[Rfam]
RNA sequence: AGCCUCAUUCAUUCUAAGGUGGAAGUGGGCACUAUCAUUCAUGGUGUCCAGGAAUUGUUAAUGUGGCUACAUUGAGACACAGGUAAUGCUUGCAUCACAGCAAGUUUAUUGCAGUGGUGACAAUGAGACCUGUAACAUUU
Numbered sequence: 001a002g003c004c005u006c007a008u009u010c011a012u013u014c015u016a017a018g019g020u021g022g023a024a025g026u027g028g029g030c031a032c033u034a035u036c037a038u039u040c041a042u043g044g045u046g047u048c049c050a051g052g053a054a055u056u057g058u059u060a061a062u063g064u065g066g067c068u069a070c071a072u073u074g075a076g077a078c079a080c081a082g083g084u085a086a087u088g089c090u091u092g093c094a095u096c097a098c099a100g101c102a103a104g105u106u107u108a109u110u111g112c113a114g115u116g117g118u119g120a121c122a123a124u125g126a127g128a129c130c131u132g133u134a135a136c137a138u139u140u
Base pairs, nucleotide, nucleotide: 002067003066004065006063007062008061026050027049028048029047030046031045032044079133080132081131082130083129093119094118095117096116097115098114
Rfam assigns this 140-nucleotide RNA from Lynx pardinus to the family "Small nucleolar RNA SNORA1". Rfam links the family to the GO terms nucleolus and RNA processing. By type it is an H/ACA-box small nucleolar RNA. The family has 29 seed sequences and 1,282 matches in Rfam 15.1. Rfam describes the family as follows. ACA1 is a member of the H/ACA class of snoRNA that guide the sites of modification of uridines to pseudouridines. The organism belongs to Lynx, within Eukaryota.